The record is a 94-nucleotide RNA from Sorghum bicolor, which matches "MIR5387 microRNA precursor family" in Rfam.
Lineage of the source: Eukaryota > Poales > Andropogonodae > Andropogoneae > Sorghum.
The base pairs follow the family's consensus structure, which was predicted with RNAalifold.
Rfam 15.1 lists 1,029 matches to the family in 9 species.
[Rfam]
RNA sequence: UCGUAACACGGGCCGGUGCUAAAGGGGUCUGUCCAACAGCUACUGACCAGUGUUGUCGGGGCAGGGACCCUUUAGCACCGAUUCUUGUUACCAA
Dot-bracket structure: ..((((((.(((.(((((((((((((..((.(((.((.....((....))....)).)))...))..))))))))))))).))).))))))...